The family of this 81-nucleotide sequence from Trabulsiella odontotermitis is "antisense RNA of dnaA mRNA".

RNA sequence: UUUGGCAUUCGGCUUACGGGCCACGAUGCCGUUACCAACCGCGUGCAACAGGUGCGUUUUACCGAGACCGGUGCCACCGUA
Numbered sequence: 001u002u003u004g005g006c007a008u009u010c011g012g013c014u015u016a017c018g019g020g021c022c023a024c025g026a027u028g029c030c031g032u033u034a035c036c037a038a039c040c041g042c043g044u045g046c047a048a049c050a051g052g053u054g055c056g057u058u059u060u061a062c063c064g065a066g067a068c069c070g071g072u073g074c075c076a077c078c079g080u081a
Stems, first nucleotide, its partner, number of pairs: 005042002009038001011036002016032003020029002051078004056074002061072003